[Rfam]
Nucleotides: 060
Base pairs, nucleotide, nucleotide: 001058002057003056004055006054007053008052009051011050012049013048014047015046016045018044019043020042021041022040026039027038028037029036
Number, partner (000 for none) and nucleotide at each position: 001058g002057g003056g004055u005000c006054u007053c008052u009051c010000u011050a012049g013048u014047u015046a016045g017000a018044c019043c020042a021041g022040a023000u024000c025000u026039g027038a028037g029036c030000c031000u032000g033000g034000g035000a036029g037028c038027u039026c040022u041021c042020u043019g044018g045016c046015u047014a048013g049012c050011u051009g052008a053007g054006a055004a056003c057002c058001c059000a060000c
The family of this 60-nucleotide RNA sequence from Simian-Human immunodeficiency virus is "Trans-activation response element (TAR)". This family represents the HIV trans-activation response (TAR) element which is known to be required for the trans-activation of the viral promoter and for virus replication. The TAR hairpin acts as a binding site for the Tat protein and this interaction stimulates the activity of the long terminal repeat promoter. Further experiments have shown that TAR acts as a miRNA that protects against apoptosis. Taxonomically the source falls in Lentivirus (Viruses, Riboviria, Artverviricota, Orthoretrovirinae). The literature on the family includes a 2003 paper in J Biol Chem by Kulinski et al., "The apical loop of the HIV-1 TAR RNA hairpin is stabilized by a cross-loop base pair". Pairs were carried over by alignment from the consensus structure, which is taken from published work. It is one of the family's seed sequences. Rfam classes the family as a microRNA precursor.